[Rfam]
RNA: Vertebrate telomerase RNA
RNA sequence: GGCGGGUUGCGGGAGCUGCGAGCGGCCGUCUCGUCUAACCCUAAAGAGAAAGGCGUAGGUGCUUGGCCUUGGCGACUCGCCCGCUGUUUUUUGGCUGGCUUUCAGCGGGUGAAGAGGCCCAAGACCUACCGCCACCCACCGUCUAGUGUCUUAAGGGCACAAAGUCCUGCCCGCCACCCUUCGAGGAGCGAAACCCAAAAAAGUCAGCCCCUGGCCGCCUCUCGCCCUCUCGCAACCCGCCUCCGUCCCAGCCUCCAUCCCCGCCCCAGGCCGCGGUCGGUCCGGGCUUCUUCGGAAGUCCCGUUGCCGUCGCGAAGAGUUCGCCUCUGUCAGCCGCGGGGCUUGGGGCCAGGGACGGGACCCUGUCCGCAGGGAGAGAAACUGGAGCCGGGCCCUCCACGGUGCCUCCCCGAGCUGUGGGAUCUGCACCCGGGACUCGAACCCUACACUU
Dot-bracket structure: .......((((((((..(((((.(((((.....................................(((((.......(((((((((.......[[[[[[[[[)))))))))..)))))................................................................................]]].]]]]]]...)))))....))))).)))))))).((.((..(((((((.(((((....(((((.......(((((.((((..(((.............)))...))))))))).((((.....)))).......)))))....)))))..)))))))..........)).))..........((.....(((((......((((.((((........))))...))))..))).))....))........